[Rfam]
RNA sequence: GCCCGGGGGCCUUUACUACGGAUCGUCCGGCACGUUCCUGCCGGUGAAGGGAUGAAUC
Dot-bracket structure: .........((((((...........((((((......))))))))))))........